[Rfam]
RNA sequence: GAUAACCUUCGGGGCAGGGUGCGGGUCUGGUGACCUAAUUCCCGAUCGGUGGUAAUCCCGAAAAAGGGAGAGCCCACGAGCGCCAUCCUGGGCGCAUGAACCGGUGAGAAGCCGGUGCCGGCGGUGACAGUCCGAAUGAGAGAAGGUCGGU
Numbered sequence: 001g002a003u004a005a006c007c008u009u010c011g012g013g014g015c016a017g018g019g020u021g022c023g024g025g026u027c028u029g030g031u032g033a034c035c036u037a038a039u040u041c042c043c044g045a046u047c048g049g050u051g052g053u054a055a056u057c058c059c060g061a062a063a064a065a066g067g068g069a070g071a072g073c074c075c076a077c078g079a080g081c082g083c084c085a086u087c088c089u090g091g092g093c094g095c096a097u098g099a100a101c102c103g104g105u106g107a108g109a110a111g112c113c114g115g116u117g118c119c120g121g122c123g124g125u126g127a128c129a130g131u132c133c134g135a136a137u138g139a140g141a142g143a144a145g146g147u148c149g150g151u
Base pairs, nucleotide, nucleotide: 003149005147006146007145008144009143010142017043018042019041045131046130047120048119049077050076051075052074072118073117100116101115102114103113104112122134123133124132

FMN riboswitch aptamer (RFN element): a 151-nucleotide RNA sequence from Candidatus Brevifilum fermentans. The base pairs follow the family's consensus structure, which is taken from published work. The RFN element is a highly conserved domain that is found frequently in the 5'-untranslated regions of prokaryotic mRNAs that encode for flavin mononucleotide (FMN) biosynthesis and transport proteins.